[Rfam]
serC leader: a 52-nucleotide RNA from Ancylobacter novellus. On this family, see Corbino et al., Genome Biol 2005: "Evidence for a second class of S-adenosylmethionine riboswitches and other regulatory RNA motifs in alpha-proteobacteria".

RNA sequence: CUCCGGGCUAUCCCACCCCACCGUGGGACGUCCAUCUGGAAGGAUGGCUAAA
Numbered sequence: 001c002u003c004c005g006g007g008c009u010a011u012c013c014c015a016c017c018c019c020a021c022c023g024u025g026g027g028a029c030g031u032c033c034a035u036c037u038g039g040a041a042g043g044a045u046g047g048c049u050a051a052a
Stems, first nucleotide, its partner, number of pairs: 011028006032047006
The match comes from Rfam's covariance-model search (49 bits). Rfam describes the family as follows. This family is a putative regulatory RNA structure that is found upstream of the serC-serA operon in some alpha-proteobacteria. The final stem of the structure overlaps the ribosome binding site of the serC reading frame. Gene Ontology term of the family: regulation of gene expression. It is annotated as a cis-regulatory leader. Taxonomically the source falls in Ancylobacter novellus (Bacteria, Pseudomonadati, Hyphomicrobiales, Xanthobacteraceae).